[Rfam]
RNA sequence: CAAUUAUGGACCUUGGCACUGGGAGAAUUCACAGUGAUCGUACCGUAUCGUUCUGUGGAUCUUUUCGUGCCAUCGUUCAAAUUUG
Numbered sequence: 001c002a003a004u005u006a007u008g009g010a011c012c013u014u015g016g017c018a019c020u021g022g023g024a025g026a027a028u029u030c031a032c033a034g035u036g037a038u039c040g041u042a043c044c045g046u047a048u049c050g051u052u053c054u055g056u057g058g059a060u061c062u063u064u065u066c067g068u069g070c071c072a073u074c075g076u077u078c079a080a081a082u083u084u085g
Stems, first nucleotide, its partner, number of pairs: 003083001005081001007079004014072005021065002023062001025061002029058006
Rfam assigns this 85-nucleotide RNA from Anopheles stephensi to the family "mir-263 microRNA precursor family". The source organism's lineage runs through Eukaryota, Metazoa, Ecdysozoa, Arthropoda and Neocellia. A search with the family's covariance model found it, with a score of 62 bits. On this family, see Li et al., BMC Genomics 2009: "Direct sequencing and expression analysis of a large number of miRNAs in Aedes aegypti and a multi-species survey of novel mosquito miRNAs".